[Rfam]
RNA: Small nucleolar RNA SNORD24
RNA sequence: GACAUAUGAUGUUACACGAAAAUAUAUUUGCUACUUCAGAGGGCUCCGGCUCGAUGAGACUACAUUUUCCACCAAGAUCUCUGAUGUU
Numbered sequence: 001g002a003c004a005u006a007u008g009a010u011g012u013u014a015c016a017c018g019a020a021a022a023u024a025u026a027u028u029u030g031c032u033a034c035u036u037c038a039g040a041g042g043g044c045u046c047c048g049g050c051u052c053g054a055u056g057a058g059a060c061u062a063c064a065u066u067u068u069c070c071a072c073c074a075a076g077a078u079c080u081c082u083g084a085u086g087u088u
Base pairs, nucleotide, nucleotide: 001088002087003086004085